A member of the RNA family "Bacillaceae-1 RNA" from Metabacillus lacus, 66 nucleotides long. A search with the family's covariance model found it, with a score of 47 bits. The base pairs follow the family's consensus structure, which is taken from published work.

RNA sequence: GCUGGGCGCUGGCCGGCUAAGAUCGGCACAUCCUGUGCCAAUGCCGGCACUAGGACGUCCUGUCCG
Numbered sequence: 001g002c003u004g005g006g007c008g009c010u011g012g013c014c015g016g017c018u019a020a021g022a023u024c025g026g027c028a029c030a031u032c033c034u035g036u037g038c039c040a041a042u043g044c045c046g047g048c049a050c051u052a053g054g055a056c057g058u059c060c061u062g063u064c065c066g
Stems, first nucleotide, its partner, number of pairs: 012048006025039005053065004